A member of the RNA family "Ribosomal protein L19 leader" from Jeotgalibacillus alimentarius, 35 nucleotides long. Rfam links the family to the GO term regulation of gene expression. It scores 37 bits against the family's covariance model. The family's consensus secondary structure was predicted with CMfinder. The family's RNA type in Rfam is cis-regulatory leader.
RNA sequence: ACAAUGUUCCGCUGCAAAAGAAGCAAGAGCAUUUG
Number, nucleotide and partner (000 for none) at each position: 001a000002c000003a033004a032005u031006g030007u029008u028009c027010c000011g000012c000013u025014g024015c023016a000017a000018a000019a000020g000021a000022a000023g015024c014025a013026a000027g009028a008029g007030c006031a005032u004033u003034u000035g000